Shown here is a 99-nucleotide RNA from Rhizobium sp. Leaf371, a member of the family "RcsR1 sRNA". Its family is annotated with sRNA-mediated gene silencing and negative regulation of translation in response to stress in the Gene Ontology. Pairs were carried over by alignment from the consensus structure, which is taken from published work. About the family: RcsR1 (rhizobial cold and salinity stress riboregulator 1) trans-acting sRNA, formerly known as SmelC587, is a stress-related riboregulator, conserved in Sinorhizobium, Rhizobium and Agrobacterium. A reference for the family is Baumgardt et al. (2015), "The stress-related, rhizobial small RNA RcsR1 destabilizes the autoinducer synthase encoding mRNA sinI in Sinorhizobium meliloti", RNA Biol. The organism belongs to Rhizobium, within Bacteria.
[Rfam]
RNA sequence: UCCUUUCUGUCUGGUGGUGGGCUCGCUAAAGCGGCCUCGAUCAGUCCUGCGUGAUGGAUUUUUACGAUAAGCCGCCCGGAGUUUCGAGGCGGCUUUUUU
Numbered sequence: 001u002c003c004u005u006u007c008u009g010u011c012u013g014g015u016g017g018u019g020g021g022c023u024c025g026c027u028a029a030a031g032c033g034g035c036c037u038c039g040a041u042c043a044g045u046c047c048u049g050c051g052u053g054a055u056g057g058a059u060u061u062u063u064a065c066g067a068u069a070a071g072c073c074g075c076c077c078g079g080a081g082u083u084u085c086g087a088g089g090c091g092g093c094u095u096u097u098u099u
Stems, first nucleotide, its partner, number of pairs: 011044005017038001019037004024033003050057001069095008077086003
Dot-bracket structure: ..........(((((.(.((((.(((....)))))))).))))).....(......)...........(((((((((((....))).))))))))....